[Rfam]
RNA sequence: CAUCCGGUCGAUCCUGCCGGAGCGCGACGCUCUCCCCAAGGACGAAGCCAUGCAUGCCCGCUCACCCGGGACGCGGCGGACGGCUCAGGACGACGGUUGCACCCCCCGCGGCGGUCCCUGCUAGCCGGACACCGCUGGCAACCCGGCGCCAAGACGUGCGCGCAAGGGCGGGCGCCCGCGGGCGAGCAGCGUGACGCAGCGACGGCCCGCCCGGGCUUCCGGGGCAUCACCCGGUCGGCGCGGUCGCGGCGCGCCGAGGGCCCGACGCCUGGCGGAGAAUCAGGGUUCGACUCCGGAGAGCGGGCCUGCGAGACGGCCCGCACAUCCAAGGACGGCAGCAGGCGCGGAACUUGCCCAAUGCGCGGCGCGCGAGGCAGCGACGGGGAGCGCGCGAGCGAGGCGGGCCCACAGCCCCCGCCGCGGAGCCGAGGGCAAGGUCUGGUGCCAGCAGCCGCGGUAAUUCCAGCUCGGCGAGCGUCGCGCGGCGCUGCUG
Numbered sequence: 001c002a003u004c005c006g007g008u009c010g011a012u013c014c015u016g017c018c019g020g021a022g023c024g025c026g027a028c029g030c031u032c033u034c035c036c037c038a039a040g041g042a043c044g045a046a047g048c049c050a051u052g053c054a055u056g057c058c059c060g061c062u063c064a065c066c067c068g069g070g071a072c073g074c075g076g077c078g079g080a081c082g083g084c085u086c087a088g089g090a091c092g093a094c095g096g097u098u099g100c101a102c103c104c105c106c107c108g109c110g111g112c113g114g115u116c117c118c119u120g121c122u123a124g125c126c127g128g129a130c131a132c133c134g135c136u137g138g139c140a141a142c143c144c145g146g147c148g149c150c151a152a153g154a155c156g157u158g159c160g161c162g163c164a165a166g167g168g169c170g171g172g173c174g175c176c177c178g179c180g181g182g183c184g185a186g187c188a189g190c191g192u193g194a195c196g197c198a199g200c201g202a203c204g205g206c207c208c209g210c211c212c213g214g215g216c217u218u219c220c221g222g223g224g225c226a227u228c229a230c231c232c233g234g235u236c237g238g239c240g241c242g243g244u245c246g247c248g249g250c251g252c253g254c255c256g257a258g259g260g261c262c263c264g265a266c267g268c269c270u271g272g273c274g275g276a277g278a279a280u281c282a283g284g285g286u287u288c289g290a291c292u293c294c295g296g297a298g299a300g301c302g303g304g305c306c307u308g309c310g311a312g313a314c315g316g317c318c319c320g321c322a323c324a325u326c327c328a329a330g331g332a333c334g335g336c337a338g339c340a341g342g343c344g345c346g347g348a349a350c351u352u353g354c355c356c357a358a359u360g361c362g363c364g365g366c367g368c369g370c371g372a373g374g375c376a377g378c379g380a381c382g383g384g385g386a387g388c389g390c391g392c393g394a395g396c397g398a399g400g401c402g403g404g405c406c407c408a409c410a411g412c413c414c415c416c417g418c419c420g421c422g423g424a425g426c427c428g429a430g431g432g433c434a435a436g437g438u439c440u441g442g443u444g445c446c447a448g449c450a451g452c453c454g455c456g457g458u459a460a461u462u463c464c465a466g467c468u469c470g471g472c473g474a475g476c477g478u479c480g481c482g483c484g485g486c487g488c489u490g491c492u493g
Base pairs, nucleotide, nucleotide: 004020005019006018007017008016022483023482024481025480026479027478028477029476030475031474033386034385035384036383037382040378041345047343048342049341051340052339053338056077057076059075060074061073084298085297086296094221095220096219099216100215103214104213109209110208111207126156127155133148134147135146136145137144138143166192168190169189174183175182176181223269224268225267230260231259232258235257236256237255238254239253240252241251242250273295274294275293276292277288278287279286280285300321301320302319303318304317305316323334325332326331351376353375354374355373359371360370361369362368363367387392399419400418403415404414425472426471427470428469429468430467439466440465441464442463448455449454
Dot-bracket structure: ...(((((.......))))).((((((((((.(((((..((.....(((.(((..((.(((...........)))))......(((.......(((..((..((....(((..............((.....((((((....))))))......)).........(.((....(((....))).....)).)..............)))...))))..))).(((....(((..((((((((.......)))))))))))......)))...((((((((....))))...))))))).((((((..........)))))).(.((....)).)...)))))).).....(.(((...(((((...))))).)))).)...)))))(....)......((..((.........))..)).....((((((........((((.....((....)).......)))))))))).))))))))))..........
Shown here is a 493-nucleotide part of an RNA from Giardia duodenalis, a member of the family "Eukaryotic small subunit ribosomal RNA". For this family Rfam cites "Crystal structure of the ribosome at 5.5 A resolution" (Yusupov et al., Science, 2001).